[Rfam]
Rfam assigns this 160-nucleotide sequence from Halobacillus andaensis to the family "FMN riboswitch aptamer (RFN element)". It scores 93 bits against the family's covariance model.

RNA sequence: UUAGUCCUUCGGGGUCGGGUGAAAAUCCCAGCCGGCGGUAAUGAGCGUAAUGAAUUGUGCGUUCCGAGCCCGCGACGGGGAAGCAGCAGCUAUGCGUUUCCCCCUGAUUUGGUGCAUAAUCCAAAGCCGACAGUGAGAGUCUGGAUGGGAGAAGGAAUGA
Numbered sequence: 001u002u003a004g005u006c007c008u009u010c011g012g013g014g015u016c017g018g019g020u021g022a023a024a025a026u027c028c029c030a031g032c033c034g035g036c037g038g039u040a041a042u043g044a045g046c047g048u049a050a051u052g053a054a055u056u057g058u059g060c061g062u063u064c065c066g067a068g069c070c071c072g073c074g075a076c077g078g079g080g081a082a083g084c085a086g087c088a089g090c091u092a093u094g095c096g097u098u099u100c101c102c103c104c105u106g107a108u109u110u111g112g113u114g115c116a117u118a119a120u121c122c123a124a125a126g127c128c129g130a131c132a133g134u135g136a137g138a139g140u141c142u143g144g145a146u147g148g149g150a151g152a153a154g155g156a157a158u159g160a
Stems, first nucleotide, its partner, number of pairs: 003158001005156006017029003031140002033129002035073004068127002077103005108125005131143003